[Rfam]
The record is an 80-nucleotide sequence, which matches "Nucleoid-associated noncoding RNA 4 (CssrE)" in Rfam.
From the family's description: In E. coli small RNA transcribed from repeated extragenic palindromic element (REP325) called nucleoid-associated ncRNA 4 (nRNA4) collaborates HU protein in condensing the DNA. The secondary structure but not the sequence of the RNA is important in nucleoid condensation. Also identified in Shigella as CssrE.
The family has 3 seed sequences and 870 matches in Rfam 15.1.
Gene Ontology terms of the family: bacterial nucleoid, protein binding and bacterial nucleoid DNA packaging.
The literature on the family includes a 2015 paper in MBio by Qian et al., "A New Noncoding RNA Arranges Bacterial Chromosome Organization".
It is annotated as a small RNA.
RNA sequence: GGCCGGAUAAGACGUUCACGCCGCAUUCCGGCAACUGCGCCAUAAUGCCUGAUGCGACGCUAAACGCGUCUUUUCAGGCG
Numbered sequence: 001g002g003c004c005g006g007a008u009a010a011g012a013c014g015u016u017c018a019c020g021c022c023g024c025a026u027u028c029c030g031g032c033a034a035c036u037g038c039g040c041c042a043u044a045a046u047g048c049c050u051g052a053u054g055c056g057a058c059g060c061u062a063a064a065c066g067c068g069u070c071u072u073u074u075c076a077g078g079c080g
Stems, first nucleotide, its partner, number of pairs: 002032005007026002011022001013020002047079006054072001056070005